A member of the RNA family "U5 spliceosomal RNA" from Citrus x clementina, 118 nucleotides long. A search with the family's covariance model found it, with a score of 88 bits. It is annotated as a spliceosomal small nuclear RNA. The source organism's lineage runs through Eukaryota, Streptophyta, Euphyllophyta, rosids and Citrus.

[Rfam]
RNA sequence: AGCCGUGUGGUAAGCACAGGGCGAACUAUUCUUUCGCCUUUUACUAAAGAAUACCGUGUGCUUGCCACUUUCAGCGGCAUACUUUAAUUUUUGUAGGUGUUGUAUUCUUUUGAGUGCA
Numbered sequence: 001a002g003c004c005g006u007g008u009g010g011u012a013a014g015c016a017c018a019g020g021g022c023g024a025a026c027u028a029u030u031c032u033u034u035c036g037c038c039u040u041u042u043a044c045u046a047a048a049g050a051a052u053a054c055c056g057u058g059u060g061c062u063u064g065c066c067a068c069u070u071u072c073a074g075c076g077g078c079a080u081a082c083u084u085u086a087a088u089u090u091u092u093g094u095a096g097g098u099g100u101u102g103u104a105u106u107c108u109u110u111u112g113a114g115u116g117c118a
Stems, first nucleotide, its partner, number of pairs: 003077004008067011027053008101118006